mraW RNA: a 104-nucleotide sequence from Rathayibacter tritici. The family's consensus secondary structure is taken from published work. It is annotated as a cis-regulatory element.

RNA sequence: UCUAGCUCCUGUCGCGCGACUCCCAGCCACUCGGCGCCCGGACGCACCUUCCCCGGUGUCCGGACGCGAGCUGGAUGGGGAUCGGGCGACAGGAUCGGGACCGG
Numbered sequence: 001u002c003u004a005g006c007u008c009c010u011g012u013c014g015c016g017c018g019a020c021u022c023c024c025a026g027c028c029a030c031u032c033g034g035c036g037c038c039c040g041g042a043c044g045c046a047c048c049u050u051c052c053c054c055g056g057u058g059u060c061c062g063g064a065c066g067c068g069a070g071c072u073g074g075a076u077g078g079g080g081a082u083c084g085g086g087c088g089a090c091a092g093g094a095u096c097g098g099g100a101c102c103g104g
Stems, first nucleotide, its partner, number of pairs: 010091006018083002021080005027074003031069002034067003038063008
The family has 45 seed sequences and 851 matches in Rfam 15.1. The organism belongs to Rathayibacter, within Bacteria. It scores 56 bits against the family's covariance model.